About this RNA: This 145-nucleotide RNA from Chara braunii belongs to the Rfam family "U12 minor spliceosomal RNA". A search with the family's covariance model found it, with a score of 90 bits. The pairing is the family consensus, mapped onto this sequence. A reference for the family is Tarn and Steitz (1997), "Pre-mRNA splicing: the discovery of a new spliceosome doubles the challenge", Trends Biochem Sci. It is annotated as a spliceosomal small nuclear RNA. Gene Ontology terms of the family: pre-mRNA branch point binding, mRNA branch site recognition and U12 snRNP.
[Rfam]
RNA sequence: UUGCCUUAAACUAAUGAGUAAGGAAAAUAACGUGACGGCGCGAGACCCGUCACACGCCGUAGUGCGUAUCAAUUUUUGGCGGGGUACAGGCUAGUCGGGAGUUGACACUGCCUACUUUGCAGGACUCUCCCCGUGCAGGCCUCCC
Numbered sequence: 001u002u003g004c005c006u007u008a009a010a011c012u013a014a015u016g017a018g019u020a021a022g023g024a025a026a027a028u029a030a031c032g033u034g035a036c037g038g039c040g041c042g043a044g045a046c047c048c049g050u051c052a053c054a055c056g057c058c059g060u061a062g063u064g065c066g067u068a069u070c071a072a073u074u075u076u077u078g079g080c081g082g083g084g085u086a087c088a089g090g091c092u093a094g095u096c097g098g099g100a101g102u103u104g105a106c107a108c109u110g111c112c113u114a115c116u117u118u119g120c121a122g123g124a125c126u127c128u129c130c131c132c133g134u135g136c137a138g139g140c141c142u143c144c145c
Stems, first nucleotide, its partner, number of pairs: 004023005032053007054067004083145002088142005094136001097131005108122004